Shown here is a 331-nucleotide RNA sequence from Thermanaerovibrio acidaminovorans, a member of the family "Bacterial RNase P class A". The family's consensus secondary structure is taken from published work. The match comes from Rfam's covariance-model search (268 bits). Gene Ontology terms of the family: tRNA processing, dimeric ribonuclease P complex and ribonuclease P activity. Taxonomically the source falls in Thermanaerovibrio acidaminovorans (Bacteria, Synergistota, Synergistia, Thermanaerovibrio).

RNA sequence: GGAGUACCACAUCCAGUCGCUGCUCAAGGCAGAGGAAAGUCCGGGCUCCACAGGGCGGGAUGCUGGAAAAAAUCCAGUGAGCGCGAGCUCAAGGAUAGCGCCACAGAGAAGAUACCGCUCCCUCGGGAGCAAGGGUGAAAAGGUGGGGUAAGAGCCCACCAGCCGGCGGGUGACCGUCGGGCUUGGCAAGCCCCAUCCGGAGCAAGGCCGAAUAGGGGGGGAUGAGGUGGCCCGCUGACCCCCGGGUACGGCCGCACGAGGCGCCCCGCGAGGGACGUCCCAGAGAAAUGACUGGACAUCGACAAAACCCGGCUUAUGGGGUGCUCCCCAA
Dot-bracket structure: ((((((((.(((((((((.(((((...)))))....[[[.[[[[[((((...[[[[.((((((((((.....)))))(((((....)))).)((...(((((............(((((((....)))))..)).......((((((.......)))))).((((((((....))))))).)..)))..)))))))))))))...((((......(((((.....(((.]]]])))..)))))......))))......((((.(((....))).))))..........)))))))...........]]]]]]]].)).))))))))....